[Rfam]
RNA sequence: AGAGGCAUAAAUUGCCAAUUGAACGUAACAAGAGUCGAGGCGAUCGCUAGUGUUCUGGAAACCCCAUUACAUGAUGCAAUUGUCCACUCUUGCACAGAAUGGAAUCAUGUUUUACUUACAGUGCAAGAAGGUAAGUGAACCCAUUUAAUUGAUAGCUGUCAUUUUAGUAAAGUGUGUAGCUAUAGAGAGAAGUUUAAAGACUGUCACCUCUGCGAGAUUGCAAGUGAACAGUGCCCCCUGGGAAGAGCUCUAUAGUGUGAAAUGUAAAUAAAAACAGCUAUUAUUCAAUUAGAUUAGGCUUUUUAGAUGAUUUGC
Numbered sequence: 001a002g003a004g005g006c007a008u009a010a011a012u013u014g015c016c017a018a019u020u021g022a023a024c025g026u027a028a029c030a031a032g033a034g035u036c037g038a039g040g041c042g043a044u045c046g047c048u049a050g051u052g053u054u055c056u057g058g059a060a061a062c063c064c065c066a067u068u069a070c071a072u073g074a075u076g077c078a079a080u081u082g083u084c085c086a087c088u089c090u091u092g093c094a095c096a097g098a099a100u101g102g103a104a105u106c107a108u109g110u111u112u113u114a115c116u117u118a119c120a121g122u123g124c125a126a127g128a129a130g131g132u133a134a135g136u137g138a139a140c141c142c143a144u145u146u147a148a149u150u151g152a153u154a155g156c157u158g159u160c161a162u163u164u165u166a167g168u169a170a171a172g173u174g175u176g177u178a179g180c181u182a183u184a185g186a187g188a189g190a191a192g193u194u195u196a197a198a199g200a201c202u203g204u205c206a207c208c209u210c211u212g213c214g215a216g217a218u219u220g221c222a223a224g225u226g227a228a229c230a231g232u233g234c235c236c237c238c239u240g241g242g243a244a245g246a247g248c249u250c251u252a253u254a255g256u257g258u259g260a261a262a263u264g265u266a267a268a269u270a271a272a273a274a275c276a277g278c279u280a281u282u283a284u285u286c287a288a289u290u291a292g293a294u295u296a297g298g299c300u301u302u303u304u305a306g307a308u309g310a311u312u313u314g315c
Stems, first nucleotide, its partner, number of pairs: 029092005035086001039084006046077002050072004056066002102313007110139003114136006143294010153280007164271003180255008200232005205226003234242003299306002
The record is a 315-nucleotide RNA from Betacoronavirus pipistrelli, which matches "Betacoronavirus 3'UTR" in Rfam. From the family's description: The 3' UTR of betacoronaviruses is approximately 300-500 nucleotides long. The source organism's lineage runs through Viruses, Pisuviricota, Nidovirales, Cornidovirineae and Betacoronavirus pipistrelli. The literature on the family includes a 2004 paper in J Virol by Goebel et al., "The 3' cis-acting genomic replication element of the severe acute respiratory syndrome coronavirus can function in the murine coronavirus genome". The sequence is in the family's curated seed alignment. Gene Ontology term of the family: viral RNA genome replication. It is annotated as a cis-regulatory element.